About this RNA
This 389-nucleotide RNA from Eisenbergiella massiliensis belongs to the Rfam family "Bacterial RNase P class A". Rfam describes the family as follows. Ribonuclease P (RNase P) is a ubiquitous endoribonuclease, found in archaea, bacteria and eukarya as well as chloroplasts and mitochondria. A search with the family's covariance model found it, with a score of 293 bits. The family's consensus secondary structure is taken from published work. Rfam classes the family as a ribozyme. A reference for the family is Frank and Pace (1998), "Ribonuclease P: unity and diversity in a tRNA processing ribozyme", Annu Rev Biochem.
RNA sequence: UAAGUAAGAUGAAUAAUCGCGGCUGUCCGUAUUCCUUUUGGGAUGCGACAGGUGAGGAAAGUCCGGGCUUCGCAGGGCAGGAUGCCGGAUAACGUCCGGUGGAGGCGACUCCAAGGCCAGUGCAACAGAAAUAUACCGCCCCGCCUUUGGCGGAAAGGAGCAAUCCUUUGGGGUGCAGACCCCGGUAAGGGUGGAAAGGCAGUGUAAGAGACUACCGCCCGUCUGGUAACAGGCGGGGCACAUGUAAACCCCAUCCGAAGCAAGACCAAACAGAGAGCAACAGGCUUGCCCGGCCUGCUUUCAGGUAGGUCGCUUGAGACUGCUGGUAACAGCAGUACUAGAUAGAUGAUUAUUCUCGACAUAACCCGGCUUACAGUUUUGCUUAUUUU
Number, nucleotide and partner (000 for none) at each position: 001u385002a384003a383004g382005u381006a380007a379008g378009a377010u376011g374012a354013a353014u352015a351016a350017u349018c348019g000020c054021g053022g000023c051024u050025g049026u048027c047028c000029g000030u000031a000032u000033u000034c000035c000036u000037u000038u000039u000040g000041g000042g000043a000044u000045g000046c000047g027048a026049c025050a024051g023052g000053u021054g020055a000056g000057g000058a000059a372060a371061g370062u000063c369064c368065g367066g366067g365068c260069u259070u258071c257072g000073c000074a000075g291076g290077g289078c288079a000080g256081g255082a254083u253084g252085c099086c098087g097088g096089a095090u000091a000092a000093c000094g000095u089096c088097c087098g086099g085100u114101g112102g111103a110104g109105g000106c000107g000108a000109c104110u103111c102112c101113a000114a100115g251116g250117c000118c000119a000120g249121u248122g245123c244124a243125a000126c000127a000128g000129a000130a000131a000132u000133a000134u000135a000136c190137c189138g186139c185140c184141c000142c000143g181144c000145c000146u178147u000148u000149g000150g000151c000152g000153g000154a000155a000156a000157g000158g000159a000160g000161c000162a000163a000164u000165c000166c000167u000168u000169u000170g000171g000172g000173g000174u000175g000176c000177a000178g146179a000180c000181c143182c000183c000184g140185g139186u138187a000188a000189g137190g136191g000192u000193g000194g000195a000196a000197a000198g216199g215200c000201a213202g212203u211204g000205u000206a000207a000208g000209a000210g000211a203212c202213u201214a000215c199216c198217g239218c237219c236220c235221g234222u233223c232224u231225g230226g000227u000228a000229a000230c225231a224232g223233g222234c221235g220236g219237g218238g000239c217240a000241c000242a000243u124244g123245u122246a000247a000248a121249c120250c116251c115252c084253a083254u082255c081256c080257g071258a070259a069260g068261c000262a000263a000264g311265a310266c309267c308268a000269a000270a000271c000272a000273g302274a301275g300276a299277g298278c297279a000280a000281c000282a296283g295284g294285c293286u292287u000288g078289c077290c076291c075292g286293g285294c284295c283296u282297g278298c277299u276300u275301u274302c273303a000304g000305g000306u000307a000308g267309g266310u265311c264312g000313c000314u000315u000316g000317a000318g000319a336320c335321u334322g333323c332324u331325g330326g000327u000328a000329a000330c325331a324332g323333c322334a321335g320336u319337a000338c000339u000340a000341g000342a000343u000344a000345g000346a000347u000348g018349a017350u016351u015352a014353u013354u012355c000356u000357c000358g000359a000360c000361a000362u000363a000364a000365c067366c066367c065368g064369g063370c061371u060372u059373a000374c011375a000376g010377u009378u008379u007380u006381g005382c004383u003384u002385a001386u000387u000388u000389u000